The record is a 78-nucleotide sequence from Medicago truncatula, which matches "MIR5271 microRNA precursor family" in Rfam. Pairs were carried over by alignment from the consensus structure, which was predicted with RNAalifold. NCBI's taxonomy places the organism under Eukaryota, Spermatophyta, eudicotyledons, Fabales, Medicago.

RNA sequence: UUCGGUUCGGAUAAUUAUAGUUACUAACUGUUCAGUUCGGUUAGUGAAUUAUUAUCAAAAUAAUAGUUCGGUUCGAGA
Numbered sequence: 001u002u003c004g005g006u007u008c009g010g011a012u013a014a015u016u017a018u019a020g021u022u023a024c025u026a027a028c029u030g031u032u033c034a035g036u037u038c039g040g041u042u043a044g045u046g047a048a049u050u051a052u053u054a055u056c057a058a059a060a061u062a063a064u065a066g067u068u069c070g071g072u073u074c075g076a077g078a
Stems, first nucleotide, its partner, number of pairs: 004074002007071006014064005025054003030049005